[Rfam]
RNA sequence: GAGCGUGAAAGGUAAACCCAGCCGAAAGGUGGGGGCACAAAGCCAUGGGUCUAAGGCGUAGAGCUAGGAUCGCCAGGCUGCCGUA
Numbered sequence: 001g002a003g004c005g006u007g008a009a010a011g012g013u014a015a016a017c018c019c020a021g022c023c024g025a026a027a028g029g030u031g032g033g034g035g036c037a038c039a040a041a042g043c044c045a046u047g048g049g050u051c052u053a054a055g056g057c058g059u060a061g062a063g064c065u066a067g068g069a070u071c072g073c074c075a076g077g078c079u080g081c082c083g084u085a
Stems, first nucleotide, its partner, number of pairs: 012038002017033004022029002041079004046075003049070003056064002

Description:
The family of this 85-nucleotide RNA sequence from Gelria sp. Kuro-4 is "c-di-GMP-I riboswitch aptamer". Pairs were carried over by alignment from the consensus structure, which is taken from published work. Lineage of the source: Bacteria > Bacillati > Bacillota > Thermoanaerobacteraceae > Gelria.